[Rfam]
The record is an 84-nucleotide RNA from Leptospirillum ferriphilum, which matches "sRNA-Xcc1" in Rfam. A search with the family's covariance model found it, with a score of 63 bits. The source organism's lineage runs through Bacteria, Nitrospiria, Nitrospirales, Leptospirillum and Leptospirillum ferriphilum. Rfam 15.1 lists 421 matches to the family in 299 species.
RNA sequence: CGCCGGGCGUGUGACGAAUACAAGACCCUUUGGGGAAAUAAGUCCGCCGCCCUUGGACGGUUUUGAGCGCCCGGCGUUUCUUGG
Numbered sequence: 001c002g003c004c005g006g007g008c009g010u011g012u013g014a015c016g017a018a019u020a021c022a023a024g025a026c027c028c029u030u031u032g033g034g035g036a037a038a039u040a041a042g043u044c045c046g047c048c049g050c051c052c053u054u055g056g057a058c059g060g061u062u063u064u065g066a067g068c069g070c071c072c073g074g075c076g077u078u079u080c081u082u083g084g
Stems, first nucleotide, its partner, number of pairs: 001076009013044003017039001026035003046061004